[Rfam]
A member of the RNA family "Plastid-ycf2 5UTR RNA" from Mikania micrantha, 69 nucleotides long.
Plastid ycf2 is a non-coding RNA (ncRNA) recognised in plastids.
Pairs were carried over by alignment from the consensus structure, which was predicted with LocARNA.
RNA sequence: GUGCAUCCAGCAGGAAUCGAACCUACAAAUUUGCUCAGUUGGACGCUUUAACCAUUCAGCCAUGGAUGC
Numbered sequence: 001g002u003g004c005a006u007c008c009a010g011c012a013g014g015a016a017u018c019g020a021a022c023c024u025a026c027a028a029a030u031u032u033g034c035u036c037a038g039u040u041g042g043a044c045g046c047u048u049u050a051a052c053c054a055u056u057c058a059g060c061c062a063u064g065g066a067u068g069c
Stems, first nucleotide, its partner, number of pairs: 003069006010026001012024003035062001038060006045053001